[Rfam]
RNA sequence: UUCUGUAUAGGCAAACUCUCCGAAAGGUGAGGACGCAAAGCUAUGGGUCUACGGAUAUAUCUAAGACUGCCAGGCUGCCAAGA
Numbered sequence: 001u002u003c004u005g006u007a008u009a010g011g012c013a014a015a016c017u018c019u020c021c022g023a024a025a026g027g028u029g030a031g032g033a034c035g036c037a038a039a040g041c042u043a044u045g046g047g048u049c050u051a052c053g054g055a056u057a058u059a060u061c062u063a064a065g066a067c068u069g070c071c072a073g074g075c076u077g078c079c080a081a082g083a
Base pairs, nucleotide, nucleotide: 001083011036012035016031017030018029020027021026034069039076040075041074042073044072045071046070047067048066049065
Notes:
Shown here is an 83-nucleotide sequence from Alkaliphilus peptidifermentans, a member of the family "c-di-GMP-I-GGC riboswitch aptamer". Taxonomically the source falls in Alkaliphilus peptidifermentans (Bacteria, Bacillati, Peptostreptococcales, Natronincolaceae).